[Rfam]
RNA sequence: GUGCCUUAAACUAAUGAGUAAGGAAAAUAACGAGCCGGAUUGACGCCCGGCUCUACCGUACUCGCAAUACGGUCGGAAUUUUUGUGGGGGCACAGGUCGUCCCAGGGGCGCCCCGCCUACUUUUGCGGGGUGCUCGGGUUGUUGCGAUCUGCCCC
Numbered sequence: 001g002u003g004c005c006u007u008a009a010a011c012u013a014a015u016g017a018g019u020a021a022g023g024a025a026a027a028u029a030a031c032g033a034g035c036c037g038g039a040u041u042g043a044c045g046c047c048c049g050g051c052u053c054u055a056c057c058g059u060a061c062u063c064g065c066a067a068u069a070c071g072g073u074c075g076g077a078a079u080u081u082u083u084g085u086g087g088g089g090g091c092a093c094a095g096g097u098c099g100u101c102c103c104a105g106g107g108g109c110g111c112c113c114c115g116c117c118u119a120c121u122u123u124u125g126c127g128g129g130g131u132g133c134u135c136g137g138g139u140u141g142u143u144g145c146g147a148u149c150u151g152c153c154c155c
Stems, first nucleotide, its partner, number of pairs: 004023005032053007055073005087155005094150007103138001106135005112129005
Rfam assigns this 155-nucleotide sequence from Rhipicephalus sanguineus to the family "U12 minor spliceosomal RNA". The pairing is the family consensus, mapped onto this sequence. By type it is a spliceosomal small nuclear RNA.